[Rfam]
RNA sequence: AGAAGACCUCCCGUAAAUCAAGCCUGAUAGGGCAUACGCAGGUUGUAAAAAAGCGGAAUGACGUGUAGACACAUCAUCCCGC
Numbered sequence: 001a002g003a004a005g006a007c008c009u010c011c012c013g014u015a016a017a018u019c020a021a022g023c024c025u026g027a028u029a030g031g032g033c034a035u036a037c038g039c040a041g042g043u044u045g046u047a048a049a050a051a052a053g054c055g056g057a058a059u060g061a062c063g064u065g066u067a068g069a070c071a072c073a074u075c076a077u078c079c080c081g082c
Base pairs, nucleotide, nucleotide: 005044007042008041009040022033023032024031025030053082054081055080056079059076060075061074063072064071
Shown here is an 82-nucleotide RNA sequence from Azotobacter chroococcum, a member of the family "Pseudomonas sRNA P31". The family's consensus secondary structure was predicted with CMfinder. It scores 95 bits against the family's covariance model. For this family Rfam cites "Identification of 17 Pseudomonas aeruginosa sRNAs and prediction of sRNA-encoding genes in 10 diverse pathogens using the bioinformatic tool sRNAPredict2" (Livny et al., Nucleic Acids Res, 2006).